[Rfam]
RNA sequence: AAAGCUCAUUGCUCAGGGGGGGAAAGCUGCUAUCUGCGGUAAGUACCUCUUCAACUGGGCUGUUAAGACC
Numbered sequence: 001a002a003a004g005c006u007c008a009u010u011g012c013u014c015a016g017g018g019g020g021g022g023a024a025a026g027c028u029g030c031u032a033u034c035u036g037c038g039g040u041a042a043g044u045a046c047c048u049c050u051u052c053a054a055c056u057g058g059g060c061u062g063u064u065a066a067g068a069c070c
Stems, first nucleotide, its partner, number of pairs: 006065001008063002011060006017050005026040005
RNA: Hepatitis C virus stem-loop VII